Fluoride riboswitch aptamer (crcB RNA motif): a 61-nucleotide RNA sequence from Peptoclostridium acidaminophilum. Rfam links the family to the GO terms response to fluoride and positive regulation of gene expression. A search with the family's covariance model found it, with a score of 56 bits. On this family, see Baker et al., Science 2012: "Widespread genetic switches and toxicity resistance proteins for fluoride". Lineage of the source: Bacteria > Clostridia > Peptostreptococcales > Peptoclostridiaceae > Peptoclostridium acidaminophilum.
RNA sequence: AUGAGAAUAGGUGAUGGGGUUCGCCUUUAAACGCAUUUAUGCUGAUGACUCCUGCAAUGAA
Numbered sequence: 001a002u003g004a005g006a007a008u009a010g011g012u013g014a015u016g017g018g019g020u021u022c023g024c025c026u027u028u029a030a031a032c033g034c035a036u037u038u039a040u041g042c043u044g045a046u047g048a049c050u051c052c053u054g055c056a057a058u059g060a061a
Base pairs, nucleotide, nucleotide: 010025011024012023013022016052017051018050019049020048021047033042034041035040